A member of the RNA family "Purine riboswitch aptamer" from Spiroplasma eriocheiris, 100 nucleotides long.
RNA sequence: CAUAAAAAUAAAUUAGCAACCUGUAUAUGUUAGUAAUAUGGUCUAACGUCUCUACACCUACCCAUUGUAAUUAGGUACUAUAGGUUAAUGUUUUUCCUUU
Dot-bracket structure: .................((((((((...(((((.........)))))........(((((...........)))))..))))))))..............
Notes
Rfam describes the family as follows. Riboswitches are metabolite binding domains within certain messenger RNAs that serve as precision sensors for their corresponding targets. The source organism's lineage runs through Bacteria, Bacillati, Mycoplasmatota, Mollicutes and Spiroplasma.